[Rfam]
RNA sequence: UUUGGCGUUCGGCUUACGGGCAAUAAUGCCAUUCCCCACCGCGUGCAGCAGGUGCGUUUUACCCAGACCCGUACCGCCGUA
Numbered sequence: 001u002u003u004g005g006c007g008u009u010c011g012g013c014u015u016a017c018g019g020g021c022a023a024u025a026a027u028g029c030c031a032u033u034c035c036c037c038a039c040c041g042c043g044u045g046c047a048g049c050a051g052g053u054g055c056g057u058u059u060u061a062c063c064c065a066g067a068c069c070c071g072u073a074c075c076g077c078c079g080u081a
Stems, first nucleotide, its partner, number of pairs: 005042003009038001011036002016032001018030001020029002051078004056074002061072002
RNA: antisense RNA of dnaA mRNA